[Rfam]
The record is an 86-nucleotide RNA sequence from Pogona vitticeps, which matches "Vault RNA" in Rfam. Taxonomically the source falls in Pogona (Eukaryota, Teleostomi, Sauria, Amphibolurinae).

RNA sequence: GGGUCAGCGUAGCCUAACGGUUCCUUCGUUGAUUACAAACUCUAUGUCACCAGGUUCAAAUCCCGUGGGCGCUGCCUGGCCUUUUA
Numbered sequence: 001g002g003g004u005c006a007g008c009g010u011a012g013c014c015u016a017a018c019g020g021u022u023c024c025u026u027c028g029u030u031g032a033u034u035a036c037a038a039a040c041u042c043u044a045u046g047u048c049a050c051c052a053g054g055u056u057c058a059a060a061u062c063c064c065g066u067g068g069g070c071g072c073u074g075c076c077u078g079g080c081c082u083u084u085u086a
Stems, first nucleotide, its partner, number of pairs: 002081006012070004017066004025060002028057001